[Rfam]
RNA sequence: AUUUCUAUACCGCUUAAUCCUUAUGGAACGGGGGAACCAACUAUACGUGAUAUGCAUGUGUCACAUGGGGUGAGUCCUACAAUCUUAGGUAGGGAUAAUCUUUUGUCCCAAACCCGACAGCUAACCUCGUAAGCGUAAAAAGAAAGGAAGA
Numbered sequence: 001a002u003u004u005c006u007a008u009a010c011c012g013c014u015u016a017a018u019c020c021u022u023a024u025g026g027a028a029c030g031g032g033g034g035a036a037c038c039a040a041c042u043a044u045a046c047g048u049g050a051u052a053u054g055c056a057u058g059u060g061u062c063a064c065a066u067g068g069g070g071u072g073a074g075u076c077c078u079a080c081a082a083u084c085u086u087a088g089g090u091a092g093g094g095a096u097a098a099u100c101u102u103u104u105g106u107c108c109c110a111a112a113c114c115c116g117a118c119a120g121c122u123a124a125c126c127u128c129g130u131a132a133g134c135g136u137a138a139a140a141a142g143a144a145a146g147g148a149a150g151a
Stems, first nucleotide, its partner, number of pairs: 011135004018027003028130006038067002068115003076089004092109004
Dot-bracket structure: ..........((((...(((....)))((((((....((..........................))(((.....((((......))))..((((..........))))...))).........)))))).))))................

Record summary: c-di-AMP riboswitch aptamer (ydaO/yuaA leader): a 151-nucleotide sequence from Psychrobacillus glaciei. About the family: This family represents a conserved RNA structure found upstream of the ydaO and yuaA genes in Bacillus subtilis and related genes in other bacteria.